[Rfam]
RNA sequence: CAAGUAAUCUAUGAAGUAAACCUUUAUCUAGUUAUGGUAGAUCUAUAACUAACUGUUCAAAAUUACUCGCUAUCACAAACUCAACUAUAUUAUUGACAUUGAAAAACGAAAAACAAAGAACAAUUAUUGUGUAAACAAUAAAUUUUUGA
Numbered sequence: 001c002a003a004g005u006a007a008u009c010u011a012u013g014a015a016g017u018a019a020a021c022c023u024u025u026a027u028c029u030a031g032u033u034a035u036g037g038u039a040g041a042u043c044u045a046u047a048a049c050u051a052a053c054u055g056u057u058c059a060a061a062a063u064u065a066c067u068c069g070c071u072a073u074c075a076c077a078a079a080c081u082c083a084a085c086u087a088u089a090u091u092a093u094u095g096a097c098a099u100u101g102a103a104a105a106a107c108g109a110a111a112a113a114c115a116a117a118g119a120a121c122a123a124u125u126a127u128u129g130u131g132u133a134a135a136c137a138a139u140a141a142a143u144u145u146u147u148g149a
Stems, first nucleotide, its partner, number of pairs: 004147001006145002008142001012138001016136002020132002026127002029123001031121003